Shown here is a 218-nucleotide RNA from Alkaliphilus peptidifermentans, a member of the family "T-box leader". It scores 128 bits against the family's covariance model. Uncharged tRNA acts as the effector for transcription antitermination of genes in the T-box leader family. T-boxes are found upstream of many aminoacyl-tRNA synthetase genes and some amino acid biosynthetic genes usually in Gram-positive bacteria.
RNA sequence: GUAAUGACAGUGAUAGGAAAUAGUAAAAUCAUCGAGCUUUUAAGAGAGAAAAUCCAAUGGCUGAAAGGUUUUCAUGUUAGAUUUUUUGAACCCAUCCUUGAGUUGAAUGAUUGAAAAUAGUAGAUCCUUCCGGUGGACGCCGUUAAGUCUUUUAAGUGAACCUCAUUCAGAGGUUAAUUAGAGUGGUACCGCGGGUAGAAUAAUCUCUCGUCUCUAUU
Numbered sequence: 001g002u003a004a005u006g007a008c009a010g011u012g013a014u015a016g017g018a019a020a021u022a023g024u025a026a027a028a029u030c031a032u033c034g035a036g037c038u039u040u041u042a043a044g045a046g047a048g049a050a051a052a053u054c055c056a057a058u059g060g061c062u063g064a065a066a067g068g069u070u071u072u073c074a075u076g077u078u079a080g081a082u083u084u085u086u087u088g089a090a091c092c093c094a095u096c097c098u099u100g101a102g103u104u105g106a107a108u109g110a111u112u113g114a115a116a117a118u119a120g121u122a123g124a125u126c127c128u129u130c131c132g133g134u135g136g137a138c139g140c141c142g143u144u145a146a147g148u149c150u151u152u153u154a155a156g157u158g159a160a161c162c163u164c165a166u167u168c169a170g171a172g173g174u175u176a177a178u179u180a181g182a183g184u185g186g187u188a189c190c191g192c193g194g195g196u197a198g199a200a201u202a203a204u205c206u207c208u209c210g211u212c213u214c215u216a217u218u
Base pairs, nucleotide, nucleotide: 007103008102015098016097017096018095026087027086028085031082037076039074048073049072050071051070052069053068106129107128109126110125111124112123131142132141133140159175160174161173162172163171164170180215181214182213183212191211192210193209194208195207